[Rfam]
RNA sequence: UUCUUAUUGGAUGAUGACUAUCACGUGUUAUGUUAUGAUUGGAUGUCAACUCCAUAAAAGAUGAGAUGCAUUGUUGUUUUCAUUGACCAAUCAAAACUGACCAAUUGUGAACUUACAUGAUUU
Numbered sequence: 001u002u003c004u005u006a007u008u009g010g011a012u013g014a015u016g017a018c019u020a021u022c023a024c025g026u027g028u029u030a031u032g033u034u035a036u037g038a039u040u041g042g043a044u045g046u047c048a049a050c051u052c053c054a055u056a057a058a059a060g061a062u063g064a065g066a067u068g069c070a071u072u073g074u075u076g077u078u079u080u081c082a083u084u085g086a087c088c089a090a091u092c093a094a095a096a097c098u099g100a101c102c103a104a105u106u107g108u109g110a111a112c113u114u115a116c117a118u119g120a121u122u123u
Stems, first nucleotide, its partner, number of pairs: 021110003025106001026104001029099002033096002036093001038091003